[Rfam]
RNA sequence: AGGAAACUUAAAGCGCCUGAACUAGCUGAUGGACGAAGAGCGGCUAGUUGACGAGGAGGAGGUUUAUCGAUUUUUCGGCGGAUGCCUCCCGAUUGUUAAGCACAAUCGUAUGCUUUUUCUAAAAAUCAUUGGGGUAACCCGAUGGACAAAGGGAAAAAGAAUGCUUAAA
Numbered sequence: 001a002g003g004a005a006a007c008u009u010a011a012a013g014c015g016c017c018u019g020a021a022c023u024a025g026c027u028g029a030u031g032g033a034c035g036a037a038g039a040g041c042g043g044c045u046a047g048u049u050g051a052c053g054a055g056g057a058g059g060a061g062g063u064u065u066a067u068c069g070a071u072u073u074u075u076c077g078g079c080g081g082a083u084g085c086c087u088c089c090c091g092a093u094u095g096u097u098a099a100g101c102a103c104a105a106u107c108g109u110a111u112g113c114u115u116u117u118u119c120u121a122a123a124a125a126u127c128a129u130u131g132g133g134g135u136a137a138c139c140c141g142a143u144g145g146a147c148a149a150a151g152g153g154a155a156a157a158a159g160a161a162u163g164c165u166u167a168a169a
Base pairs, nucleotide, nucleotide: 020049021048022047023046024045025044026043027042058089059088060087061086062085067078068077069076070075090108091107092106093105094104095103113159114158115157116156117155118154119153127144128143129142130141131140132139133138
A member of the RNA family "glmS glucosamine-6-phosphate activated ribozyme aptamer" from Bacillus sp. Y1, 169 nucleotides long. NCBI's taxonomy places the organism under Bacteria, Bacillati, Bacillota, Bacilli, Bacillus. For this family Rfam cites "Evidence for preorganization of the glmS ribozyme ligand binding pocket" (Hampel and Tinsley, Biochemistry, 2006). The family's consensus secondary structure is taken from published work. This entry contains a glucosamine-6-phosphate activated ribozyme that is found in the mRNA for GlmS. GlmS is an enzyme that uses fructose-6-phosphate and glutamine to generate glucosamine-6-phosphate. The ribozyme catalyses self cleavage of the glmS mRNA that is thought to regulate GlmS activity.